[Rfam]
RNA sequence: AUUGCUUCUGGGCUUUUCAGCUAAGAUCAAGGGUAGUAUCUAUUCUUAUCAGUUUAAUUAUACUACAUAAAGAUUCUACUGUGCUUGCUCAAAAUUCAGCAAUAAUGAUGAAACUCCGGUUUGGGAACACUCAUUUAGGUUUUGAGCCUGAUUGCCUGUUUGAAUCCUAGUUCCUUCGUUUACUGGCACUGUGACCUUGGGAAAAUAA
Numbered sequence: 001a002u003u004g005c006u007u008c009u010g011g012g013c014u015u016u017u018c019a020g021c022u023a024a025g026a027u028c029a030a031g032g033g034u035a036g037u038a039u040c041u042a043u044u045c046u047u048a049u050c051a052g053u054u055u056a057a058u059u060a061u062a063c064u065a066c067a068u069a070a071a072g073a074u075u076c077u078a079c080u081g082u083g084c085u086u087g088c089u090c091a092a093a094a095u096u097c098a099g100c101a102a103u104a105a106u107g108a109u110g111a112a113a114c115u116c117c118g119g120u121u122u123g124g125g126a127a128c129a130c131u132c133a134u135u136u137a138g139g140u141u142u143u144g145a146g147c148c149u150g151a152u153u154g155c156c157u158g159u160u161u162g163a164a165u166c167c168u169a170g171u172u173c174c175u176u177c178g179u180u181u182a183c184u185g186g187c188a189c190u191g192u193g194a195c196c197u198u199g200g201g202a203a204a205a206u207a208a
Stems, first nucleotide, its partner, number of pairs: 007026003011022004050081003086101004091096001131163003136158003143154003166201005173193001175191001176188001
RNA: U2 spliceosomal RNA